[Rfam]
RNA sequence: GGAGUGUGCUCAUAGCAGAGGGCCUGAAGCAAUGGCUCCUGGGUUUACAACACACCUGAGGGGGAUCUGGGUUCAUUGUGACAAAGGGCGUGAAACUUGUGGCCUUCCUACGAACAGAUACCCGACACGU
Numbered sequence: 001g002g003a004g005u006g007u008g009c010u011c012a013u014a015g016c017a018g019a020g021g022g023c024c025u026g027a028a029g030c031a032a033u034g035g036c037u038c039c040u041g042g043g044u045u046u047a048c049a050a051c052a053c054a055c056c057u058g059a060g061g062g063g064g065a066u067c068u069g070g071g072u073u074c075a076u077u078g079u080g081a082c083a084a085a086g087g088g089c090g091u092g093a094a095a096c097u098u099g100u101g102g103c104c105u106u107c108c109u110a111c112g113a114a115c116a117g118a119u120a121c122c123c124g125a126c127a128c129g130u
Stems, first nucleotide, its partner, number of pairs: 002057001004055005014045003019040003022036003070123002073120001077116003082112001085105003089101005
Rfam assigns this 130-nucleotide RNA from Odobenus rosmarus to the family "Small nucleolar RNA SNORA11". NCBI's taxonomy places the organism under Eukaryota, Opisthokonta, Chordata, Tetrapoda, Odobenus rosmarus. Gene Ontology terms of the family: RNA processing and nucleolus.